A member of the RNA family "Molybdenum/Tungsten riboswitch aptamer (Moco RNA motif)" from Pseudoflavonifractor sp. An176, 119 nucleotides long. The literature on the family includes a 2008 paper in Mol Microbiol by Regulski et al., "in molybdenum cofactor and tungsten cofactor metabolism". The organism belongs to Pseudoflavonifractor, within Bacteria. It scores 70 bits against the family's covariance model.
RNA sequence: ACCAUAGAAAUGCUUCGAGCCAGUGCUUCUAAGGGCUAUAUGCCUAUGAACCGCUGGCCAGGGUCAUGCUGGAAACGGAAUGGCCUUCCGUGUUUGAAAAGAAGCUGCUCCAGCCCCAG
Dot-bracket structure: ..(........(((((..(((((((.(((...((((.....))))..))).)))))))..(((((((.(((....))).)))))))((.......))...))))).......)......